Nucleotides: 390
Stems, first nucleotide, its partner, number of pairs: 017035006036387004044367004050347002055079006065071001086343003090124002095118006102110002128145005148339008171315003177303009188291005194211005216265004226256005236246003353362002369381003
Number, partner (000 for none) and nucleotide at each position: 001000a002000g003000u004000a005000g006000u007000a008000g009000c010000a011000g012000c013000g014000a015000a016000a017035g018034u019033c020032g021031g022030g023000u024000g025000a026000g027000a028000a029000u030022c031021c032020c033019g034018a035017c036387c037386a038385c039384c040000g041000a042000a043000a044367g045366g046365g047364c048000a049000a050347g051346g052000g053000u054000u055079c056078c057077u058076c059075g060074g061000c062000a063000a064000c065071g066000c067000u068000c069000g070000u071065c072000a073000g074060c075059c076058g077057a078056g079055g080000g081000u082000a083000a084000g085000c086343c087342g088341g089000u090124c091123c092000u093000a094000a095118g096117u097116c098115c099114a100113c101000c102110c103109g104000u105000a106000a107000c108000c109103c110102g111000a112000a113100g114099u115098g116097g117096a118095c119000g120000a121000a122000a123091g124090g125000g126000a127000a128145g129144c130143c131142g132141g133000u134000u135000a136000a137000u138000a139000u140000u141132c142131c143130g144129g145128c146000g147000c148339c149338a150337u151336g152335a153334a154333g155332a156000u157000u158000g159000c160000c161000u162000c163000g164000c165000c166000c167000a168000u169000u170000c171315c172314c173313u174000g175000a176000c177303a178302u179301c180300u181299c182298g183297g184296g185295g186000u187000a188291g189290g190289c191288g192287g193000a194211c195210c196209a197208a198207g199000g200000u201000u202000g203000u204000c205000g206000c207198c208197u209196u210195g211194g212000c213000u214000a215000a216265c217264c218263a219262g220000g221000a222000u223000a224000a225000g226256a227255c228254u229253g230252g231000g232000g233000a234000g235000a236246u237245c238244c239000g240000u241000a242000a243000u244238g245237g246236a247000g248000a249000g250000a251000a252230c253229c254228g255227g256226u257000c258000u259000a260000a261000a262219c263218u264217g265216g266000g267000a268000u269000g270000g271000g272000c273000c274000u275000c276000c277000u278000u279000u280000g281000g282000g283000g284000g285000u286000u287192c288191u289190g290189c291188u292000g293000a294000u295185c296184c297183c298182u299181g300180g301179g302178a303177u304000c305000c306000a307000u308000g309000a310000a311000a312000a313173g314172g315171g316000g317000a318000a319000u320000g321000g322000g323000a324000a325000a326000u327000g328000g329000u330000g331000g332155u333154c334153u335152u336151c337150a338149u339148g340000a341088c342087c343086g344000u345000a346051c347050c348000c349000a350000g351000a352000a353362c354361u355000g356000a357000c358000a359000c360000a361354g362353g363000u364047g365046c366045c367044c368000a369381g370380g371379u372000u373000g374000a375000g376000a377000a378000g379371a380370c381369u382000a383000a384039g385038g386037u387036g388000u389000g390000g